[Rfam]
RNA sequence: GCGCAGAGUAGAAGCGUUCAGCCCUGUCGCCCCGCGCGCAUGGUCGGAAAUUGCUCUUUGA
Numbered sequence: 001g002c003g004c005a006g007a008g009u010a011g012a013a014g015c016g017u018u019c020a021g022c023c024c025u026g027u028c029g030c031c032c033c034g035c036g037c038g039c040a041u042g043g044u045c046g047g048a049a050a051u052u053g054c055u056c057u058u059u060g061a
Stems, first nucleotide, its partner, number of pairs: 005057006015046001018048002021044003025040003
This 61-nucleotide RNA sequence from Variovorax sp. belongs to the Rfam family "Xanthine riboswitch aptamer (NMT1 RNA)". On this family, see Yu and Breaker, RNA 2020: "A bacterial riboswitch class senses xanthine and uric acid to regulate genes associated with purine oxidation". A search with the family's covariance model found it, with a score of 50 bits. Pairs were carried over by alignment from the consensus structure, which is taken from published work. The source organism's lineage runs through Bacteria, Pseudomonadota, Betaproteobacteria, Burkholderiales and Variovorax. Gene Ontology term of the family: purine nucleobase binding.